Rfam assigns this 56-nucleotide sequence from Sphingobium cupriresistens to the family "nhaA-I RNA". The family's consensus secondary structure is taken from published work. Acidobacteria, Alphaproteobacteria, Betaproteobacteria and Gammaproteobacteria, Verrucomicrobia, cand. division NC10.
RNA sequence: GGGUGUUCGCCAUGAUGCAGGCGGGCAGGUUUGUGUCGUUGGUCGGGCCGCCAGCG
Numbered sequence: 001g002g003g004u005g006u007u008c009g010c011c012a013u014g015a016u017g018c019a020g021g022c023g024g025g026c027a028g029g030u031u032u033g034u035g036u037c038g039u040u041g042g043u044c045g046g047g048c049c050g051c052c053a054g055c056g
Base pairs, nucleotide, nucleotide: 005026006025007024008023009022010021011020037056038055039054040053041052042051043050